SAH (S-adenosyl-L-homocysteine) riboswitch aptamer: a 92-nucleotide RNA from Litchfieldella anticariensis. The organism belongs to Litchfieldella anticariensis, within Bacteria. Pairs were carried over by alignment from the consensus structure, which is taken from published work. The literature on the family includes a 2008 paper in Mol Cell by Wang et al., "Riboswitches that sense S-adenosylhomocysteine and activate genes involved in coenzyme recycling".
Nucleotides: 092
Stems, first nucleotide, its partner, number of pairs: 002059007021046006
Number, partner (000 for none) and nucleotide at each position: 001000c002059u003058g004057u005056c006055c007054g008053a009000g010000g011000g012000g013000c014000g015000c016000u017000g018000c019000a020000g021046c022045a023044c024043c025042c026041g027000g028000u029000g030000a031000c032000g033000a034000u035000c036000g037000u038000a039000g040000a041026c042025g043024g044023g045022u046021g047000c048000g049000a050000g051000g052000c053008u054007c055006g056005g057004a058003c059002a060000g061000a062000c063000g064000c065000u066000g067000u068000g069000c070000a071000u072000a073000g074000g075000c076000a077000a078000c079000g080000g081000c082000g083000c084000c085000c086000a087000u088000u089000c090000c091000c092000c